RNA sequence: UUUUUAGUGUAAGUAUGUCCCACAUAAUAUUCGGGACAUACUCAUACUAAAA
Numbered sequence: 001u002u003u004u005u006a007g008u009g010u011a012a013g014u015a016u017g018u019c020c021c022a023c024a025u026a027a028u029a030u031u032c033g034g035g036a037c038a039u040a041c042u043c044a045u046a047c048u049a050a051a052a
Stems, first nucleotide, its partner, number of pairs: 006048005012042001014040003018036004022031001